Rfam assigns this 186-nucleotide RNA from Aurantiacibacter xanthus to the family "Manganese Mn2+ riboswitch aptamer (yybP-ykoY)". The organism belongs to Aurantiacibacter, within Bacteria. Pairs were carried over by alignment from the consensus structure. The match comes from Rfam's covariance-model search (54 bits).

RNA sequence: CAAGCCGUCAUCUGGGGAGUAGCCCCCGCGCGCCUUCGGGCGUCAAUCCUUGCGUCAACAUACUUGGUCGAGAGAUCAUGGCGCAUGGGGGACGGACCACAAUCCGUCCGGGCAAGACCAAUGGCACCUGCUUUCGUCCGGCCGGGCGGAAGGCAUGGUGCUGUUGCUGUCUCGAACGCCCGGCCC
Numbered sequence: 001c002a003a004g005c006c007g008u009c010a011u012c013u014g015g016g017g018a019g020u021a022g023c024c025c026c027c028g029c030g031c032g033c034c035u036u037c038g039g040g041c042g043u044c045a046a047u048c049c050u051u052g053c054g055u056c057a058a059c060a061u062a063c064u065u066g067g068u069c070g071a072g073a074g075a076u077c078a079u080g081g082c083g084c085a086u087g088g089g090g091g092a093c094g095g096a097c098c099a100c101a102a103u104c105c106g107u108c109c110g111g112g113c114a115a116g117a118c119c120a121a122u123g124g125c126a127c128c129u130g131c132u133u134u135c136g137u138c139c140g141g142c143c144g145g146g147c148g149g150a151a152g153g154c155a156u157g158g159u160g161c162u163g164u165u166g167c168u169g170u171c172u173c174g175a176a177c178g179c180c181c182g183g184c185c186c
Base pairs, nucleotide, nucleotide: 028044048088049087051085052084053083054082055081056080057079065078066077067076068075069074089186090185091184093182094181095180